[Rfam]
RNA sequence: UAGCCUGACGUGAUGAGUUUCCUUCAUGUCUCUUCUCUGAGAUUGGUGCUGGAGAUACCCCAAAAGCUCUGAGCAGGCUG
Numbered sequence: 001u002a003g004c005c006u007g008a009c010g011u012g013a014u015g016a017g018u019u020u021c022c023u024u025c026a027u028g029u030c031u032c033u034u035c036u037c038u039g040a041g042a043u044u045g046g047u048g049c050u051g052g053a054g055a056u057a058c059c060c061c062a063a064a065a066g067c068u069c070u071g072a073g074c075a076g077g078c079u080g
Base pairs, nucleotide, nucleotide: 001080002079003078004077005076
RNA: Small nucleolar RNA SNORD111
Organism: Alectura lathami